[Rfam]
Shown here is a 67-nucleotide sequence from Pipistrellus kuhlii, a member of the family "mir-9256 microRNA precursor family".
The source organism's lineage runs through Eukaryota, Craniata, Vertebrata, Boreoeutheria and Pipistrellus.
Gene Ontology terms of the family: RISC complex and miRNA-mediated post-transcriptional gene silencing.
RNA sequence: UUAUACACUGAGUGGCCAGAUUAUUGUGAUCUCUGAACACAUAAUAAUUUGGCCACUUAGUGUAUGU
Numbered sequence: 001u002u003a004u005a006c007a008c009u010g011a012g013u014g015g016c017c018a019g020a021u022u023a024u025u026g027u028g029a030u031c032u033c034u035g036a037a038c039a040c041a042u043a044a045u046a047a048u049u050u051g052g053c054c055a056c057u058u059a060g061u062g063u064a065u066g067u
Stems, first nucleotide, its partner, number of pairs: 004064014019049010